[Rfam]
About this RNA
This 73-nucleotide sequence from Drosophila rhopaloa belongs to the Rfam family "mir-310 microRNA precursor family". Clan: mir-92 microRNA precursor clan.
RNA sequence: UUGUUUUUCGGACGGUAUUUGUGACAAUAUGCUUAAUUUUAGACAUAUUGCACAUUUACCGGCCUGAAAUUAA
Numbered sequence: 001u002u003g004u005u006u007u008u009c010g011g012a013c014g015g016u017a018u019u020u021g022u023g024a025c026a027a028u029a030u031g032c033u034u035a036a037u038u039u040u041a042g043a044c045a046u047a048u049u050g051c052a053c054a055u056u057u058a059c060c061g062g063c064c065u066g067a068a069a070u071u072a073a
Base pairs, nucleotide, nucleotide: 001073002072003071005069006068007067010064011063013061014060016058017057020054021053023051025050026049027048028047029046030045031044